Shown here is a 65-nucleotide sequence from Gorilla gorilla, a member of the family "MAT2A 3'UTR stem loop A". The match comes from Rfam's covariance-model search (62 bits). On this family, see Parker et al., Genome Res 2011: "New families of human regulatory RNA structures identified by comparative analysis of vertebrate genomes". The family has 20 seed sequences and 595 matches in Rfam 15.1.
RNA sequence: GUCUUUUUUCCCAAUACUUGUUGGUAAAGGCAACAGAGAAGCCUUCAAGCUCUGAGGGAAAGGGC
Numbered sequence: 001g002u003c004u005u006u007u008u009u010c011c012c013a014a015u016a017c018u019u020g021u022u023g024g025u026a027a028a029g030g031c032a033a034c035a036g037a038g039a040a041g042c043c044u045u046c047a048a049g050c051u052c053u054g055a056g057g058g059a060a061a062g063g064g065c
Stems, first nucleotide, its partner, number of pairs: 001065004008059004014053001016051001019047002023043003